This 163-nucleotide RNA sequence from Erpetoichthys calabaricus belongs to the Rfam family "U1 spliceosomal RNA". A search with the family's covariance model found it, with a score of 114 bits. Lineage of the source: Eukaryota > Opisthokonta > Eumetazoa > Vertebrata > Erpetoichthys.
[Rfam]
RNA sequence: AUACUUACCUGGCAGGAGAAAUACCAUGAUCACUAAGGUGGUUCUCCCAGGGCGAGGCUCAUCCAUUGCACUCCAGGUGUGCUGACCCCUGCGAUUUCCCCAAAUGCGGAAAACUCAACUGCAUAAUUUGGGGUAAACGUUAACAUUAUUCAAAGUUAUUGUC
Numbered sequence: 001a002u003a004c005u006u007a008c009c010u011g012g013c014a015g016g017a018g019a020a021a022u023a024c025c026a027u028g029a030u031c032a033c034u035a036a037g038g039u040g041g042u043u044c045u046c047c048c049a050g051g052g053c054g055a056g057g058c059u060c061a062u063c064c065a066u067u068g069c070a071c072u073c074c075a076g077g078u079g080u081g082c083u084g085a086c087c088c089c090u091g092c093g094a095u096u097u098c099c100c101c102a103a104a105u106g107c108g109g110a111a112a113a114c115u116c117a118a119c120u121g122c123a124u125a126a127u128u129u130g131g132g133g134u135a136a137a138c139g140u141u142a143a144c145a146u147u148a149u150u151c152a153a154a155g156u157u158a159u160u161g162u163c
Base pairs, nucleotide, nucleotide: 012122013121014120015119016048018046019045021043023042024041025040026039027038049090050089051088052087054086056083057082058081060079061078062077063076093116094115095113096111097110099109100108137162138161139160141158143157146154147153

Background:
The family's RNA type in Rfam is spliceosomal small nuclear RNA.